The family of this 87-nucleotide RNA from Lutispora thermophila is "c-di-GMP-I riboswitch aptamer".
NCBI's taxonomy places the organism under Bacteria, Bacillota, Lutisporales, Lutisporaceae, Lutispora thermophila.
The base pairs follow the family's consensus structure, which is taken from published work.
[Rfam]
RNA sequence: AAUUGAAAAUAGCAAACUUAUCGAAAGGUAAGGACGCAAAGCUAUGAGUCUAAAGCGUGUAUAUGUCAUGAUCGUCAAGCUGCCAAU
Number, nucleotide and partner (000 for none) at each position: 001a000002a000003u000004u000005g000006a000007a000008a000009a000010u000011a000012g037013c036014a000015a000016a000017c032018u031019u030020a029021u028022c027023g000024a000025a000026a000027g022028g021029u020030a019031a018032g017033g000034a000035c000036g013037c012038a000039a000040a081041g080042c079043u078044a000045u077046g076047a075048g072049u071050c070051u000052a000053a000054a000055g066056c065057g064058u063059g000060u000061a000062u000063a058064u057065g056066u055067c000068a000069u000070g050071a049072u048073c000074g000075u047076c046077a045078a043079g042080c041081u040082g000083c000084c000085a000086a000087u000